MIR159 microRNA precursor family: a 206-nucleotide RNA sequence from Turnera subulata. The base pairs follow the family's consensus structure, which was predicted with WAR. For this family Rfam cites "Novel and stress-regulated microRNAs and other small RNAs from Arabidopsis" (Sunkar and Zhu, Plant Cell, 2004). Lineage of the source: Eukaryota > Streptophyta > Spermatophyta > fabids > Turnera. The match comes from Rfam's covariance-model search (102 bits).
[Rfam]
Nucleotides: 206
Stems, first nucleotide, its partner, number of pairs: 013192005019186002023182007036169001058144002061141003067135004075127001
Number, partner (000 for none) and nucleotide at each position: 001000a002000g003000u004000u005000a006000a007000a008000a009000a010000a011000g012000g013192g014191a015190g016189c017188u018000c019186c020185c021000u022000u023182c024181a025180g026179u027178c028177c029176a030000a031000g032000c033000a034000a035000a036169g037000a038000g039000a040000a041000g042000g043000a044000a045000a046000g047000g048000a049000u050000g051000a052000a053000u054000u055000u056000a057000u058144c059143u060000c061141c062140c063139g064000c065000a066000u067135c068134a069133u070132u071000c072000a073000c074000a075127c076000a077000u078000u079000c080000a081000c082000a083000g084000u085000a086000g087000u088000a089000a090000u091000u092000a093000a094000c095000a096000a097000c098000u099000c100000c101000g102000a103000u104000c105000u106000u107000c108000c109000a110000u111000u112000c113000c114000c115000u116000c117000u118000a119000c120000u121000g122000c123000g124000u125000u126000u127075g128000a129000a130000u131000g132070a133069a134068u135067g136000a137000g138000u139063c140062g141061g142000c143059a144058g145000c146000u147000a148000a149000u150000c151000c152000a153000a154000c155000c156000c157000c158000u159000u160000u161000g162000c163000c164000c165000c166000c167000c168000u169036c170000c171000a172000u173000g174000a175000g176029u177028g178027g179026a180025c181024u182023g183000a184000a185020g186019g187000a188017a189016g190015c191014u192013c193000u194000c195000u196000u197000c198000u199000u200000c201000a202000a203000c204000c205000a206000a